[Rfam]
RNA sequence: GCGUAACAUUCCGACGAUUUAAGCAAUAUAAGGAUAAGCCCGUUGGACAGUCACAGUCGAUACCAAAUCAUAUUUUCUUGAUCUCUCGCCUUUCUAUACUUAUCGGCGGGAAUCGCA
Numbered sequence: 001g002c003g004u005a006a007c008a009u010u011c012c013g014a015c016g017a018u019u020u021a022a023g024c025a026a027u028a029u030a031a032g033g034a035u036a037a038g039c040c041c042g043u044u045g046g047a048c049a050g051u052c053a054c055a056g057u058c059g060a061u062a063c064c065a066a067a068u069c070a071u072a073u074u075u076u077c078u079u080g081a082u083c084u085c086u087c088g089c090c091u092u093u094c095u096a097u098a099c100u101u102a103u104c105g106g107c108g109g110g111a112a113u114c115g116c117a
Stems, first nucleotide, its partner, number of pairs: 002013002005010001031076005043066004050061003080114003084111007

Aggregatibacter sRNA 54: a 117-nucleotide sequence from Actinobacillus delphinicola.
The base pairs follow the family's consensus structure, which was predicted with RNAfold.
Rfam classes the family as a small RNA.